[Rfam]
RNA sequence: GAUAGGGCUGUGUCGCUAGCGUGAUUGGACACUGACGCUGAGUCAACUAGCCUUUGUUGAGCGGUUCGUUGCACCGUGAACCGCGGCCGGCAGGGUGACGAGGGGGGAUACCCUGCCGGCCGGAU
Numbered sequence: 001g002a003u004a005g006g007g008c009u010g011u012g013u014c015g016c017u018a019g020c021g022u023g024a025u026u027g028g029a030c031a032c033u034g035a036c037g038c039u040g041a042g043u044c045a046a047c048u049a050g051c052c053u054u055u056g057u058u059g060a061g062c063g064g065u066u067c068g069u070u071g072c073a074c075c076g077u078g079a080a081c082c083g084c085g086g087c088c089g090g091c092a093g094g095g096u097g098a099c100g101a102g103g104g105g106g107g108a109u110a111c112c113c114u115g116c117c118g119g120c121c122g123g124a125u
Stems, first nucleotide, its partner, number of pairs: 001014004015051004021032003033045004059074001061072004075083002085121013099106001
RNA: Streptomyces RNA 3920